Notes
This 142-nucleotide RNA from Carlito syrichta belongs to the Rfam family "Small nucleolar RNA SNORA67". About the family: U67 belongs to the H/ACA class of snoRNAs which are thought to guide the sites of modification of uridines to pseudouridines. Its family is annotated with RNA processing and nucleolus in the Gene Ontology. The source organism's lineage runs through Eukaryota, Bilateria, Craniata, Tarsiiformes and Carlito.
RNA sequence: AUCCAAGGUGAUUCCCUCUCCAAGGGGACGAAUAGUGCCCUUCUUAGGAAAGUAGCAACUUGGAAUAAAAUCUGGCAUGCCUGAGGUCUUUGGGGGACAGGGAAUGCUUGCUUCCUCUGCCUUCCUUUGGCUGCCUACAUGC
Numbered sequence: 001a002u003c004c005a006a007g008g009u010g011a012u013u014c015c016c017u018c019u020c021c022a023a024g025g026g027g028a029c030g031a032a033u034a035g036u037g038c039c040c041u042u043c044u045u046a047g048g049a050a051a052g053u054a055g056c057a058a059c060u061u062g063g064a065a066u067a068a069a070a071u072c073u074g075g076c077a078u079g080c081c082u083g084a085g086g087u088c089u090u091u092g093g094g095g096g097a098c099a100g101g102g103a104a105u106g107c108u109u110g111c112u113u114c115c116u117c118u119g120c121c122u123u124c125c126u127u128u129g130g131c132u133g134c135c136u137a138c139a140u141g142c
Stems, first nucleotide, its partner, number of pairs: 002064006009057002019049003023042005075132001078130001083125001085123001092115001094113003